[Rfam]
RNA sequence: AAUUUUCAAAGGAUAAGUAUAAGACCUUAAUUUGGAAAUU
Number, nucleotide and partner (000 for none) at each position: 001a040002a039003u038004u037005u036006u034007c000008a033009a028010a027011g026012g025013a000014u000015a000016a000017g000018u000019a000020u000021a000022a000023g000024a000025c012026c011027u010028u009029a000030a000031u000032u000033u008034g006035g000036a005037a004038a003039u002040u001
The record is a 40-nucleotide sequence, which matches "S4-Flavobacteria ribosomal protein leader" in Rfam. Rfam classes the family as a cis-regulatory leader. Rfam's curators put it in the seed alignment.